[Rfam]
Rfam assigns this 78-nucleotide sequence from Roseiflexus castenholzii to the family "Glycine riboswitch aptamer". The organism belongs to Roseiflexus castenholzii, within Bacteria.

RNA sequence: CCUCUGGAGAGCCCGUCUAUUCGGGCGCCGACGGAGAAACCCGUCAUGCGGGGCAUCUCACAGGUCAGUGGACAGAGG
Numbered sequence: 001c002c003u004c005u006g007g008a009g010a011g012c013c014c015g016u017c018u019a020u021u022c023g024g025g026c027g028c029c030g031a032c033g034g035a036g037a038a039a040c041c042c043g044u045c046a047u048g049c050g051g052g053g054c055a056u057c058u059c060a061c062a063g064g065u066c067a068g069u070g071g072a073c074a075g076a077g078g
Stems, first nucleotide, its partner, number of pairs: 001078006012025004027065003030061001034059003040052004